[Rfam]
Nucleotides: 139
Base pairs, nucleotide, nucleotide: 020052021051023049024048026047027046028045034042082117083116084115085113087111089109090108092106093105094104132139133138
Number, partner (000 for none) and nucleotide at each position: 001000a002000g003000c004000u005000c006000u007000g008000u009000g010000c011000a012000g013000u014000g015000g016000c017000a018000g019000u020052a021051u022000a023049g024048u025000a026047g027046c028045c029000c030000a031000u032000g033000a034042g035000a036000u037000u038000u039000a040000u041000c042034c043000a044000a045028g046027g047026u048024g049023c050000a051021a052020u053000u054000a055000u056000u057000g058000c059000u060000a061000a062000u063000u064000a065000a066000a067000a068000a069000u070000g071000a072000a073000a074000a075000a076000u077000u078000c079000c080000a081000u082117g083116u084115u085113u086000u087111u088000g089109a090108a091000c092106a093105u094104a095000a096000a097000a098000a099000u100000u101000a102000a103000a104094u105093a106092u107000c108090u109089u110000a111087a112000u113085a114000u115084a116083a117082c118000a119000a120000u121000a122000c123000u124000u125000a126000g127000c128000a129000c130000a131000u132139g133138u134000g135000c136000a137000g138133a139132u
The family of this 139-nucleotide sequence from Heterocephalus glaber is "U4 spliceosomal RNA".
The family's consensus secondary structure is taken from published work.
For this family Rfam cites "The spliceosomal snRNAs of Caenorhabditis elegans" (Thomas et al., Nucleic Acids Res, 1990).
From the family's description: U4 small nuclear RNA (U4 snRNA) is a component of the major U2-dependent spliceosome.
Rfam 15.1 lists 32,178 matches to the family in 2,547 species.
It scores 53 bits against the family's covariance model.